Rfam assigns this 140-nucleotide RNA sequence from Erinaceus europaeus to the family "U11 spliceosomal RNA".
For this family Rfam cites "Additional low-abundance human small nuclear ribonucleoproteins: U11, U12, etc" (Montzka and Steitz, Proc Natl Acad Sci U S A, 1988).
Pairs were carried over by alignment from the consensus structure, which is taken from published work.
RNA sequence: AAAAAGAGGGUGGGGCUUCUGUCGUGAGCGACACACAGAGGGCAGUUCGUUUGCUCUACCUGUGGAAUCGACAUCGAGAGAUUUCGGAAGCAUAAUUUUUGUUGAUUGGGCAGCUGGUAAUUGUUGGUCCCAGCACCCAC
Number, nucleotide and partner (000 for none) at each position: 001a000002a000003a000004a000005a000006g000007a000008g000009g000010g000011u000012g000013g000014g000015g091016c090017u089018u088019c087020u033021g032022u031023c030024g029025u000026g000027a000028g000029c024030g023031a022032c021033a020034c062035a061036c000037a000038g000039a057040g056041g055042g054043c053044a052045g051046u000047u000048c000049g000050u000051u045052u044053g043054c042055u041056c040057u039058a000059c000060c000061u035062g034063u086064g085065g084066a083067a082068u081069c080070g000071a000072c000073a000074u000075c000076g000077a000078g000079a000080g069081a068082u067083u066084u065085c064086g063087g019088a018089a017090g016091c015092a000093u000094a000095a000096u000097u000098u000099u000100u000101g000102u000103u000104g000105a000106u000107u000108g138109g137110g136111c000112a000113g134114c133115u132116g131117g130118u000119a000120a128121u127122u126123g000124u000125u000126g122127g121128u120129c000130c117131c116132a115133g114134c113135a000136c110137c109138c108139a000140c000

The organism belongs to Erinaceus, within Eukaryota.